[Rfam]
RNA: mir-130 microRNA precursor family
Organism: Salmo trutta
RNA sequence: AAUGGCCCCCUAUUCCCUACAUAGUGCACUACUUUUGACCAGGGCUCAUCAAAAGUAGUGCACUGUGUAGGGAAUAGGGGGCCAUUU
Dot-bracket structure: ((..((((((.((((((((..(((((((((((......................)))))))))))..)))))))).))))))...))